[Rfam]
RNA sequence: UUAUGUGACGUUUUUGCUAUUGAACUGUUUUAUCCCUGUCUAAAUCAGAACAAAUUGUUUUUUGACUGAGAGGGAUAAAACAGAUCAUUAGCUAAAACGUCAUAUAAC
Numbered sequence: 001u002u003a004u005g006u007g008a009c010g011u012u013u014u015u016g017c018u019a020u021u022g023a024a025c026u027g028u029u030u031u032a033u034c035c036c037u038g039u040c041u042a043a044a045u046c047a048g049a050a051c052a053a054a055u056u057g058u059u060u061u062u063u064g065a066c067u068g069a070g071a072g073g074g075a076u077a078a079a080a081c082a083g084a085u086c087a088u089u090a091g092c093u094a095a096a097a098c099g100u101c102a103u104a105u106a107a108c
Base pairs, nucleotide, nucleotide: 001107002106003105004104005103006102011097012096013095014094016092017091018090019089021087022086023085025083026082027081028080029069030068033065034064049059050058051057052056
Dot-bracket structure: ((((((....((((.((((.(((.((((((..((..............((((...))))....))..))..........)))).))).)))).))))....)))))).